[Rfam]
RNA sequence: CCGUGCAGCCGGGGAGAUAGCGGUGCCCUGUACCUGCAAUCCGCUCUAGCAGGGGUGAUGUCCUGUCCCGGACAUUUUACUGCAGAGCUGCCUUUCGUAAGCGGCGAUGACGUUUGGGUCUUGCGCAAUAGGAAUUCAUGAACCGUGUCAGGGCAGGAAUGCAGCAGCACUAAGUGAAACCUCCUAUGUGCCGCAAGGCAGCCUGGACUGAGCUGGCUGCGGGAGUAACGUCUGUGGUGGAUGUACAAAACAGGACGCACGG
Dot-bracket structure: ((((((.(((((((.(.(...).).))))...(((((...........)))))))).....(((((...(.((((.((((((((((..((..((((((..(((((......((((((((((((((((.(((((.(((((.....((((....(((....)))....))))...)))))...)))))))...))))))...))))))))...))).)).)))))).))...)))))))))))))).)...)))))..))))))